[Rfam]
RNA: THF (Tetrahydrofolate) riboswitch aptamer
Organism: Clostridium sp. AM58-1XD
RNA sequence: AGCAGAGUAGGUGUAUGUGCGUUAAGUGCUGGCUGUACAGGGAGUUGACAGCCGGACGAAAAGAAUUUCUUGCGGUACAUAUGCCGCAUCCCGCUGCA
Dot-bracket structure: .((((....(((((((((((((...((.((((((((...[[[.[...))))))))))...((((...))))))).)))))))))).].]]]..)))).